[Rfam]
RNA sequence: UUGCAAGUUUGAGGCCAUAGCAGAAACACACUCAUGGUGCAACCUGUCAGAUUCCAACAAAUCUGUGAAUUCUGCU
Numbered sequence: 001u002u003g004c005a006a007g008u009u010u011g012a013g014g015c016c017a018u019a020g021c022a023g024a025a026a027c028a029c030a031c032u033c034a035u036g037g038u039g040c041a042a043c044c045u046g047u048c049a050g051a052u053u054c055c056a057a058c059a060a061a062u063c064u065g066u067g068a069a070u071u072c073u074g075c076u
Stems, first nucleotide, its partner, number of pairs: 013044002016039001019076007026038002048065006
Source information: The family of this 76-nucleotide RNA from Alligator mississippiensis is "Mammalian CPEB3 ribozyme". The family's consensus secondary structure is taken from published work. Its family is annotated with RNA nuclease activity in the Gene Ontology. From the family's description: The mammalian CPEB3 ribozyme is a self cleaving RNA located in the second intron of the CPEB3 gene which belongs to a family of genes regulating messenger RNA polyadenylation. This ribozyme is highly conserved and found only in mammals. Taxonomically the source falls in Alligator (Eukaryota, Amniota, Archelosauria, Alligatoridae).